The family of this 148-nucleotide RNA sequence from Schistocephalus solidus is "U12 minor spliceosomal RNA". Clan: U2 clan. Pairs were carried over by alignment from the consensus structure.

RNA sequence: AUGCCUUAAACUAAUGAGUAAGGAAAAAUAACAUUCCGAUGGAAUAGUCGGAUUGCUGGACUAUUACCAGAUCAAUGUUUGAAGGGUAAAGGCCUUCUCAGCUUGGCUCCUUACUUCCGGAGCUGAGCUCGAUGAUAUUGGUCUGCCC
Numbered sequence: 001a002u003g004c005c006u007u008a009a010a011c012u013a014a015u016g017a018g019u020a021a022g023g024a025a026a027a028a029u030a031a032c033a034u035u036c037c038g039a040u041g042g043a044a045u046a047g048u049c050g051g052a053u054u055g056c057u058g059g060a061c062u063a064u065u066a067c068c069a070g071a072u073c074a075a076u077g078u079u080u081g082a083a084g085g086g087u088a089a090a091g092g093c094c095u096u097c098u099c100a101g102c103u104u105g106g107c108u109c110c111u112u113a114c115u116u117c118c119g120g121a122g123c124u125g126a127g128c129u130c131g132a133u134g135a136u137a138u139u140g141g142u143c144u145g146c147c148c
Base pairs, nucleotide, nucleotide: 004023005022006021007020008019033054035052036051037050038049039048040047056070057069058068059067084148085147086146087145088144091143092142093141094140095137098132099131100129101128102127103126104125106123107122108121109120110119
Dot-bracket structure: ...(((((..........))))).........(.((((((......)))))).).((((.......)))).............(((((..(((((..(((((((.(((((........))))).))))).))....)..)))))))))